[Rfam]
RNA sequence: AAAGUAAGCUGGGUAAUCGCUGGUGGAUUUCCGCAAGGAGCCACGAGAGGAAAGUCCGAGCUCCAUAGGGCAGGGUGCUGGAUAACGUCCAGUCAGAGUGAUCUGAAGGAUAGUGCCACAGAAAUGGACCGCCUAUGUGUCAUUACUUAAUGAUGCAGGCAAGGGUGCAACCGUGGUGUAAGAGACCACGAAGGGUUAUGGUGACAUAUCCCUUGGUAAACCCCACCUGGAGCAAGACCUUAUAGGAACGCACAUAGAGUUGCCCGCUCUGCGUUCGGGUUGGUCGCUUGAGCUAUCUAGUAAUAGGUAGCCUAGAUAGAUGAUUACCACUUCAAUGGUGGGAGCACUAUGGUGCGUAGUACCACUGGAAGUACAGAACUCGGCUUAUAGGCUUACUUUCCUU
Numbered sequence: 001a002a003a004g005u006a007a008g009c010u011g012g013g014u015a016a017u018c019g020c021u022g023g024u025g026g027a028u029u030u031c032c033g034c035a036a037g038g039a040g041c042c043a044c045g046a047g048a049g050g051a052a053a054g055u056c057c058g059a060g061c062u063c064c065a066u067a068g069g070g071c072a073g074g075g076u077g078c079u080g081g082a083u084a085a086c087g088u089c090c091a092g093u094c095a096g097a098g099u100g101a102u103c104u105g106a107a108g109g110a111u112a113g114u115g116c117c118a119c120a121g122a123a124a125u126g127g128a129c130c131g132c133c134u135a136u137g138u139g140u141c142a143u144u145a146c147u148u149a150a151u152g153a154u155g156c157a158g159g160c161a162a163g164g165g166u167g168c169a170a171c172c173g174u175g176g177u178g179u180a181a182g183a184g185a186c187c188a189c190g191a192a193g194g195g196u197u198a199u200g201g202u203g204a205c206a207u208a209u210c211c212c213u214u215g216g217u218a219a220a221c222c223c224c225a226c227c228u229g230g231a232g233c234a235a236g237a238c239c240u241u242a243u244a245g246g247a248a249c250g251c252a253c254a255u256a257g258a259g260u261u262g263c264c265c266g267c268u269c270u271g272c273g274u275u276c277g278g279g280u281u282g283g284u285c286g287c288u289u290g291a292g293c294u295a296u297c298u299a300g301u302a303a304u305a306g307g308u309a310g311c312c313u314a315g316a317u318a319g320a321u322g323a324u325u326a327c328c329a330c331u332u333c334a335a336u337g338g339u340g341g342g343a344g345c346a347c348u349a350u351g352g353u354g355c356g357u358a359g360u361a362c363c364a365c366u367g368g369a370a371g372u373a374c375a376g377a378a379c380u381c382g383g384c385u386u387a388u389a390g391g392c393u394u395a396c397u398u399u400c401c402u403u
Base pairs, nucleotide, nucleotide: 001399002398003397004396005395006394007393008392009391010390011388012328013327014326015325016324017323018322020047021046023044024043025042026041028039029038030037052386053385054384056383057382058381059380060379061232062231063230064229068265069264070263071262073228074227075226076225077224078092079091080090081089082088093107094105095104096103097102108223109222113221114220115217116216117215129164130163131160132159133158134157136155137154138153172190173189174188175187176186177185193212194211195210197208198207199206200205236285237284238283239282246276247275248274249273250272251271256270257269258268259267260266292311293310294309295308296307297306298305299304
Dot-bracket structure: ((((((((((((((((((.((.((((.(((......))).)))).))....[[[.[[[[[((((...[[[[.((((((((((.....)))))(((((....)))).)((...(((((...........((((((.(((..............))).))))..)).......((((((.......))))))..(((.((((....)))).)))..)))..)))))))))))))...((((......((((((....(((((.]]]]))))))))))).....))))......((((((((....))))))))..........)))))))..................................................]]]]]]]].).))))))))))....